The record is a 156-nucleotide RNA from Streptomyces fulvorobeus, which matches "c-di-AMP riboswitch aptamer (ydaO/yuaA leader)" in Rfam.
The source organism's lineage runs through Bacteria, Bacillati, Actinomycetota, Actinomycetes and Streptomyces.
RNA sequence: GAACCCAGACCACUCACGCCCGGCAGGAGCGGGGGACCCAGGUAAGUCGCCGAUCCGUCAUGCGGAACGGCUCGGGGUUAAGUCGCACACACCUGCGACCAGGCACCUCCAGCCUGAACCCGACAGCUCACCUCGUAGGCGCCGGAGAGGAAUCAG
Numbered sequence: 001g002a003a004c005c006c007a008g009a010c011c012a013c014u015c016a017c018g019c020c021c022g023g024c025a026g027g028a029g030c031g032g033g034g035g036a037c038c039c040a041g042g043u044a045a046g047u048c049g050c051c052g053a054u055c056c057g058u059c060a061u062g063c064g065g066a067a068c069g070g071c072u073c074g075g076g077g078u079u080a081a082g083u084c085g086c087a088c089a090c091a092c093c094u095g096c097g098a099c100c101a102g103g104c105a106c107c108u109c110c111a112g113c114c115u116g117a118a119c120c121c122g123a124c125a126g127c128u129c130a131c132c133u134c135g136u137a138g139g140c141g142c143c144g145g146a147g148a149g150g151a152a153u154c155a156g
Base pairs, nucleotide, nucleotide: 005027006026029136030135031134032133033132034131039074075121076120077119083098084097085096086095101115102114103113104112